[Rfam]
RNA: Purine riboswitch aptamer
Organism: Hathewaya histolytica
RNA sequence: AAUAGGUUUUAGAAUUGUACUCAUAUAUAUUUGACAAUAAGGGUCGAAUGUUUCUACGGGGUUGCCUUAAACUAUCCCACUAUGAGUAAGUAAUUUUAAUUU
Numbered sequence: 001a002a003u004a005g006g007u008u009u010u011a012g013a014a015u016u017g018u019a020c021u022c023a024u025a026u027a028u029a030u031u032u033g034a035c036a037a038u039a040a041g042g043g044u045c046g047a048a049u050g051u052u053u054c055u056a057c058g059g060g061g062u063u064g065c066c067u068u069a070a071a072c073u074a075u076c077c078c079a080c081u082a083u084g085a086g087u088a089a090g091u092a093a094u095u096u097u098a099a100u101u102u
Stems, first nucleotide, its partner, number of pairs: 018088008029049007058078005064072001